Description:
Shown here is an 87-nucleotide sequence, a member of the family "ctRNA". For this family Rfam cites "Involvement of antisense RNA in replication control of the lactococcal plasmid pND324" (Duan et al., FEMS Microbiol Lett, 1998). The match comes from Rfam's covariance-model search (48 bits). By type it is an antisense RNA. The family's consensus secondary structure was predicted with ILM.
[Rfam]
RNA sequence: UAUAUAUAUAUAUAUAUAUAUAUAUAUAUGCGCGCGCAUAGAGAAAUGUUUGUUACGGAAUAUAUUCUCUGUGCACUUAGUUUACGA
Numbered sequence: 001u002a003u004a005u006a007u008a009u010a011u012a013u014a015u016a017u018a019u020a021u022a023u024a025u026a027u028a029u030g031c032g033c034g035c036g037c038a039u040a041g042a043g044a045a046a047u048g049u050u051u052g053u054u055a056c057g058g059a060a061u062a063u064a065u066u067c068u069c070u071g072u073g074c075a076c077u078u079a080g081u082u083u084a085c086g087a
Stems, first nucleotide, its partner, number of pairs: 004029010034076001036074010